Rfam assigns this 124-nucleotide RNA sequence from Microcebus murinus to the family "Small nucleolar RNA SNORA51". Gene Ontology terms of the family: RNA processing and nucleolus. From the family's description: ACA51 is a member of the H/ACA class of snoRNA that guide the sites of modification of uridines to pseudouridines. NCBI's taxonomy places the organism under Eukaryota, Chordata, Amniota, Theria, Microcebus.
RNA sequence: AGCUUCCUAGUACUCAGCACAGGCUGUGUUCUUAUGCUGACUGAACAGAAAGAGGAGAUGGAGUAAACCCCAUAUACACUCCCAGGCCCUGCGCCUUGUCUGUAUUUUGAAUAGGGAAACAAGG
Numbered sequence: 001a002g003c004u005u006c007c008u009a010g011u012a013c014u015c016a017g018c019a020c021a022g023g024c025u026g027u028g029u030u031c032u033u034a035u036g037c038u039g040a041c042u043g044a045a046c047a048g049a050a051a052g053a054g055g056a057g058a059u060g061g062a063g064u065a066a067a068c069c070c071c072a073u074a075u076a077c078a079c080u081c082c083c084a085g086g087c088c089c090u091g092c093g094c095c096u097u098g099u100c101u102g103u104a105u106u107u108u109g110a111a112u113a114g115g116g117a118a119a120c121a122a123g124g
Base pairs, nucleotide, nucleotide: 002059004057005056006055007054008053020043021042022041026037027036028035029034068116069115070114072112073111082098084096085095086094087093